mir-551 microRNA precursor family: a 75-nucleotide RNA from Sphenodon punctatus.
RNA sequence: UGACUCCAGAAAUCAAGGAUGGGUGAGACCUCUUAAAAAAACAAGAAGGCGACCCAUACUUGGUUUCAGGGGCUG
Numbered sequence: 001u002g003a004c005u006c007c008a009g010a011a012a013u014c015a016a017g018g019a020u021g022g023g024u025g026a027g028a029c030c031u032c033u034u035a036a037a038a039a040a041a042c043a044a045g046a047a048g049g050c051g052a053c054c055c056a057u058a059c060u061u062g063g064u065u066u067c068a069g070g071g072g073c074u075g
Base pairs, nucleotide, nucleotide: 002074004072005071006070007069009067010066011065012064013063014062016060017059021055022054023053024052029049030048031047
The base pairs follow the family's consensus structure, which was predicted with RNAalifold. The literature on the family includes a 2008 paper in Genome Res by Murchison et al., "Conservation of small RNA pathways in platypus".